RNA sequence: UUAAUGUAAAGGCAAACCGUCUGAAAGGGCGGGACGCAAAGCCAGGGGGCUAAAGCGGAGUUGCUCCGCCACGCCAGCCCGGCCGCCAUU
Dot-bracket structure: ...........((...((((((....))))))...))...(((.((((((....((((.......))))...)))..)))))).......
This 90-nucleotide RNA sequence from Flavonifractor sp. An100 belongs to the Rfam family "c-di-GMP-I riboswitch aptamer". The family's consensus secondary structure is taken from published work. It scores 77 bits against the family's covariance model.